[Rfam]
RNA sequence: CUAGCUCCUGAUUGUCCAAACGCAAUUCUUGUGAAUUUUACUAAACAAAAACCGAGAAUUGUGCAUGGACAUCUUGAGCUGC
Numbered sequence: 001c002u003a004g005c006u007c008c009u010g011a012u013u014g015u016c017c018a019a020a021c022g023c024a025a026u027u028c029u030u031g032u033g034a035a036u037u038u039u040a041c042u043a044a045a046c047a048a049a050a051a052c053c054g055a056g057a058a059u060u061g062u063g064c065a066u067g068g069a070c071a072u073c074u075u076g077a078g079c080u081g082c
Stems, first nucleotide, its partner, number of pairs: 002081006010073003014070005021063011

Rfam assigns this 82-nucleotide RNA sequence from Acipenser ruthenus to the family "mir-219 microRNA precursor family".
For this family Rfam cites "Vertebrate microRNA genes" (Lim et al., Science, 2003).
The organism belongs to Acipenser, within Eukaryota.
Pairs were carried over by alignment from the consensus structure, which was predicted with RNAalifold.